RNA sequence: GCUAGUAGUGGGCAUUGCUCUUGCUUAGUUGGUCAGGUCUGAAAAGAAGCAGCCAGGGUAAGAUUCUGUGGGUCAUUACUAGUAUCA
Numbered sequence: 001g002c003u004a005g006u007a008g009u010g011g012g013c014a015u016u017g018c019u020c021u022u023g024c025u026u027a028g029u030u031g032g033u034c035a036g037g038u039c040u041g042a043a044a045a046g047a048a049g050c051a052g053c054c055a056g057g058g059u060a061a062g063a064u065u066c067u068g069u070g071g072g073u074c075a076u077u078a079c080u081a082g083u084a085u086c087a
Stems, first nucleotide, its partner, number of pairs: 003081008013070003017066001019063007029056005038047003
Rfam assigns this 87-nucleotide RNA sequence from Rickettsia prowazekii to the family "Bacterial small signal recognition particle RNA". The family's RNA type in Rfam is non-coding RNA gene.